Shown here is a 99-nucleotide sequence from Bacillus sp. FJAT-27916, a member of the family "Purine riboswitch aptamer".
The family's consensus secondary structure is taken from published work.
Taxonomically the source falls in Bacillus (Bacteria, Bacillota, Bacilli, Caryophanales).
Rfam 15.1 lists 4,097 matches to the family in 1,411 species.

RNA sequence: AUGAACAACAUAAAUUUAACCUGUAUAACCUCAGAAUAUGGCGUGAGGGUCUCUACCAGGAACCAUAAAGUCCUGACUACAGAAAAUGAACCUUUUUCA
Numbered sequence: 001a002u003g004a005a006c007a008a009c010a011u012a013a014a015u016u017u018a019a020c021c022u023g024u025a026u027a028a029c030c031u032c033a034g035a036a037u038a039u040g041g042c043g044u045g046a047g048g049g050u051c052u053c054u055a056c057c058a059g060g061a062a063c064c065a066u067a068a069a070g071u072c073c074u075g076a077c078u079a080c081a082g083a084a085a086a087u088g089a090a091c092c093u094u095u096u097u098c099a
Base pairs, nucleotide, nucleotide: 021082022081023080024079025078029048030047031046032045033044034042057075058074059073060072061071